Description:
The record is an 84-nucleotide sequence from Trichoplax adhaerens, which matches "Small nucleolar RNA R38" in Rfam. snoR38 is a C/D box small nucleolar RNA conserved across yeast, human, Arabidopsis and rice. It is encoded in the intron of elongation factor-1 gamma in both pombe and cerevisiae. snoR38 guides the methylation of 2'-O-ribose sites in 28S rRNA. The family's consensus secondary structure was predicted with PFOLD. Rfam classes the family as a C/D-box small nucleolar RNA. It scores 49 bits against the family's covariance model.

RNA sequence: UAUUAUCAAUGAUGACGAAGAUUGCUAUAGUUAUCCCUGUCAGAAUAUGACUAAAUGUUGAUAUCACGUCAGUCUGAGACAAUA
Numbered sequence: 001u002a003u004u005a006u007c008a009a010u011g012a013u014g015a016c017g018a019a020g021a022u023u024g025c026u027a028u029a030g031u032u033a034u035c036c037c038u039g040u041c042a043g044a045a046u047a048u049g050a051c052u053a054a055a056u057g058u059u060g061a062u063a064u065c066a067c068g069u070c071a072g073u074c075u076g077a078g079a080c081a082a083u084a
Stems, first nucleotide, its partner, number of pairs: 001084004006079002